[Rfam]
RNA sequence: UGGUGCCCAAUGGUGUGGUUUUGGAUACGGGGGAAUUCACUAGGUAAGAGGCGUGUAAGUGUUCGGCCAAAGAAAAAAAAAGUGAAAGUGAAAGUCAGUUCGACAAAGUUCUCCGUGGGAGCCUGCCGCACCGUUCUUAAAGGUACAAUAGCGCCUAACUAUGGGACAAGAAUUAAGUAAGCAUAAAGUUUUUGUUAAGCAAUUAAAAGAAGCUUUGAAGACAUGGGGAGUAAAGGUUAAGAGUAAUGAUCUUUUUAAGUUUUUUGACCUUAUUAAGGACACCUGUCUGU
Numbered sequence: 001u002g003g004u005g006c007c008c009a010a011u012g013g014u015g016u017g018g019u020u021u022u023g024g025a026u027a028c029g030g031g032g033g034a035a036u037u038c039a040c041u042a043g044g045u046a047a048g049a050g051g052c053g054u055g056u057a058a059g060u061g062u063u064c065g066g067c068c069a070a071a072g073a074a075a076a077a078a079a080a081a082g083u084g085a086a087a088g089u090g091a092a093a094g095u096c097a098g099u100u101c102g103a104c105a106a107a108g109u110u111c112u113c114c115g116u117g118g119g120a121g122c123c124u125g126c127c128g129c130a131c132c133g134u135u136c137u138u139a140a141a142g143g144u145a146c147a148a149u150a151g152c153g154c155c156u157a158a159c160u161a162u163g164g165g166a167c168a169a170g171a172a173u174u175a176a177g178u179a180a181g182c183a184u185a186a187a188g189u190u191u192u193u194g195u196u197a198a199g200c201a202a203u204u205a206a207a208a209g210a211a212g213c214u215u216u217g218a219a220g221a222c223a224u225g226g227g228g229a230g231u232a233a234a235g236g237u238u239a240a241g242a243g244u245a246a247u248g249a250u251c252u253u254u255u256u257a258a259g260u261u262u263u264u265u266g267a268c269c270u271u272a273u274u275a276a277g278g279a280c281a282c283c284u285g286u287c288u289g290u
Stems, first nucleotide, its partner, number of pairs: 006033003015028003038051001040050002094144003099140002111133001115129004149169001151167001154165004174217003177213002224266008234252006275290001277288004
Record summary:
A member of the RNA family "Mason-Pfizer monkey virus packaging signal" from Sciurus vulgaris, 290 nucleotides long. A search with the family's covariance model found it, with a score of 159 bits. This family represents a group of sequences that are related to the Mason-Pfizer monkey virus (MPMV) packaging signal. The packaging signal is located in the 5' UTR and is required for specific RNA encapsidation. The family's RNA type in Rfam is cis-regulatory element.